[Rfam]
RNA: L31-Firmicutes ribosomal protein leader
RNA sequence: CUCUGGACUGAUAGGACGUUCAGGGCGGAAAGAG
Numbered sequence: 001c002u003c004u005g006g007a008c009u010g011a012u013a014g015g016a017c018g019u020u021c022a023g024g025g026c027g028g029a030a031a032g033a034g
Stems, first nucleotide, its partner, number of pairs: 001025008